[Rfam]
RNA sequence: CGGUGUAUAGCGCAGCUCGGUAGCGCACUUGCCUUGGGAGCAAGGGGUCACAGGUUCAAAUCCUGUUACACCGA
Numbered sequence: 001c002g003g004u005g006u007a008u009a010g011c012g013c014a015g016c017u018c019g020g021u022a023g024c025g026c027a028c029u030u031g032c033c034u035u036g037g038g039a040g041c042a043a044g045g046g047g048u049c050a051c052a053g054g055u056u057c058a059a060a061u062c063c064u065g066u067u068a069c070a071c072c073g074a
Stems, first nucleotide, its partner, number of pairs: 001073007010026004028044005050066005